[Rfam]
RNA sequence: ACGAUCUAUAGAACAGAUCCUGUUCUAUAGAUCGUACCACUGUGUCCUUGAGUGUUAAGGAGACAGGCAACAAAAUCUGGUUGAUGACAUGUGAUCUCGAGAUCAGAGCAUGAUUAACGGCUAAGGUUCCUUGGAACCGGUUGCUGUGGAGGAUUGUUCUCAGCAGAUAUGGAUCUGGUGGGGUUGGUCUUGAGAUUGUCUGACAGACC
Numbered sequence: 001a002c003g004a005u006c007u008a009u010a011g012a013a014c015a016g017a018u019c020c021u022g023u024u025c026u027a028u029a030g031a032u033c034g035u036a037c038c039a040c041u042g043u044g045u046c047c048u049u050g051a052g053u054g055u056u057a058a059g060g061a062g063a064c065a066g067g068c069a070a071c072a073a074a075a076u077c078u079g080g081u082u083g084a085u086g087a088c089a090u091g092u093g094a095u096c097u098c099g100a101g102a103u104c105a106g107a108g109c110a111u112g113a114u115u116a117a118c119g120g121c122u123a124a125g126g127u128u129c130c131u132u133g134g135a136a137c138c139g140g141u142u143g144c145u146g147u148g149g150a151g152g153a154u155u156g157u158u159c160u161c162a163g164c165a166g167a168u169a170u171g172g173a174u175c176u177g178g179u180g181g182g183g184u185u186g187g188u189c190u191u192g193a194g195a196u197u198g199u200c201u202g203a204c205a206g207a208c209c
Base pairs, nucleotide, nucleotide: 001035002034003032005031006030007029011025012024013023014022015021016020040066041065042064043063045061046060047059048058049057050056076207077206078205079204094196095195096194097193098192099191100190101189102188103187104186105185107158108157109156110155117147118146119145120144121143123141125138126137127136128135129134159182160181161180162179164177165176166175167174168173
Dot-bracket structure: (((.(((...((((((...))))))...)))).))....((((.((((((.....)))))).)))).........((((..............((((((((((((.((((......(((((.(.(((((....)))))..).))))).......))))((((.(((((....))))).))))..)))))))))))).......))))..

Rfam assigns this 209-nucleotide RNA sequence from Zingiber officinale to the family "Plant small nucleolar RNA U3". Pairs were carried over by alignment from the consensus structure, which is taken from published work. On this family, see Zwieb, Nucleic Acids Res 1997: "The uRNA database". Its Rfam clan is "U3 clan". Small nucleolar RNAs (snoRNAs) are involved in the processing and modification of rRNA in the nucleolus. There are two main classes of snoRNAs: the box C/D class, and the box H/ACA class. Rfam classes the family as a C/D-box small nucleolar RNA.